The family of this 73-nucleotide RNA from Crocodylus porosus is "Mammalian CPEB3 ribozyme". A search with the family's covariance model found it, with a score of 46 bits. Pairs were carried over by alignment from the consensus structure, which is taken from published work. Rfam links the family to the GO term RNA nuclease activity.
[Rfam]
RNA sequence: GGUUGCAAGUUUGAGGCCACAGCAGAAACCUGGUGUGCCCCUGUUAGAUUCCAGUGAAUCUGUGAAUUCUGCU
Numbered sequence: 001g002g003u004u005g006c007a008a009g010u011u012u013g014a015g016g017c018c019a020c021a022g023c024a025g026a027a028a029c030c031u032g033g034u035g036u037g038c039c040c041c042u043g044u045u046a047g048a049u050u051c052c053a054g055u056g057a058a059u060c061u062g063u064g065a066a067u068u069c070u071g072c073u
Stems, first nucleotide, its partner, number of pairs: 013041001015039003018035001021073007028034002045062007